[Rfam]
RNA sequence: CUGGGAUGAUGCUUCUUUAGCCAAAUCAGACAUUUUGAUGUGCUCCUUAAGGCAUCACCUCAAAGCUAUUUGUUGGAUGGGAUGCCUUUUGUUGAAGCACAUCCGCUGAUGAUAACCUCGGGAUUGGUUUCAUGUCUGACCAGA
Numbered sequence: 001c002u003g004g005g006a007u008g009a010u011g012c013u014u015c016u017u018u019a020g021c022c023a024a025a026u027c028a029g030a031c032a033u034u035u036u037g038a039u040g041u042g043c044u045c046c047u048u049a050a051g052g053c054a055u056c057a058c059c060u061c062a063a064a065g066c067u068a069u070u071u072g073u074u075g076g077a078u079g080g081g082a083u084g085c086c087u088u089u090u091g092u093u094g095a096a097g098c099a100c101a102u103c104c105g106c107u108g109a110u111g112a113u114a115a116c117c118u119c120g121g122g123a124u125u126g127g128u129u130u131c132a133u134g135u136c137u138g139a140c141c142a143g144a
Base pairs, nucleotide, nucleotide: 001143002142003141004140